Notes
This 116-nucleotide sequence from Bacillus sp. MUM 13 belongs to the Rfam family "RNA Staph. aureus E (RoxS)". The source organism's lineage runs through Bacteria, Bacillati, Bacillota, Caryophanales and Bacillus. Rfam describes the family as follows. It was shown to be regulated by the presence of nitric oxide (NO). In Bacillus subtilis it controls expression of genes with functions related to oxidative stress and oxidation-reduction reactions and it was renamed RoxS (for related to oxidative stress). A search with the family's covariance model found it, with a score of 94 bits. The literature on the family includes a 2015 paper in PLoS Genet by Durand et al., "A nitric oxide regulated small RNA controls expression of genes involved in redox homeostasis in Bacillus subtilis".

RNA sequence: GUGAGGUUGAUCACAGCAAACUUAUACCCCUUUGUUUGAUCGUGAAAAAUUUCUCCCAUCCCCUUUGUUCGUAUAAAUAGAUAAAGAAGGCCCUGCUAUUUUAGCAGGGCCUUCUU
Numbered sequence: 001g002u003g004a005g006g007u008u009g010a011u012c013a014c015a016g017c018a019a020a021c022u023u024a025u026a027c028c029c030c031u032u033u034g035u036u037u038g039a040u041c042g043u044g045a046a047a048a049a050u051u052u053c054u055c056c057c058a059u060c061c062c063c064u065u066u067g068u069u070c071g072u073a074u075a076a077a078u079a080g081a082u083a084a085a086g087a088a089g090g091c092c093c094u095g096c097u098a099u100u101u102u103a104g105c106a107g108g109g110c111c112u113u114c115u116u
Stems, first nucleotide, its partner, number of pairs: 003053006011045004017038005024033001069083001072081001087113011